[Rfam]
RNA sequence: UCAGUCUGAAAAUCACUUGGCGUCUUCUGUGGCCCCUGGUGCGAUAACUGUGCCGACAGCAGAGGGAGCAUUAAACUCAUUGCCCAUGGGAAAGUGUGGGGAGUGAUACCCAUGUUCCUAUAAUC
Numbered sequence: 001u002c003a004g005u006c007u008g009a010a011a012a013u014c015a016c017u018u019g020g021c022g023u024c025u026u027c028u029g030u031g032g033c034c035c036c037u038g039g040u041g042c043g044a045u046a047a048c049u050g051u052g053c054c055g056a057c058a059g060c061a062g063a064g065g066g067a068g069c070a071u072u073a074a075a076c077u078c079a080u081u082g083c084c085c086a087u088g089g090g091a092a093a094g095u096g097u098g099g100g101g102a103g104u105g106a107u108a109c110c111c112a113u114g115u116u117c118c119u120a121u122a123a124u125c
Stems, first nucleotide, its partner, number of pairs: 006050001008048001010045001014041003019034003065118001067116005077106005085098003
The record is a 125-nucleotide sequence from Bucco capensis, which matches "Small nucleolar RNA ACA64" in Rfam. Gene Ontology terms of the family: nucleolus and RNA processing. The organism belongs to Bucco, within Eukaryota. On this family, see Schattner et al., RNA 2006: "A computational screen for mammalian pseudouridylation guide H/ACA RNAs". Rfam classes the family as an H/ACA-box small nucleolar RNA.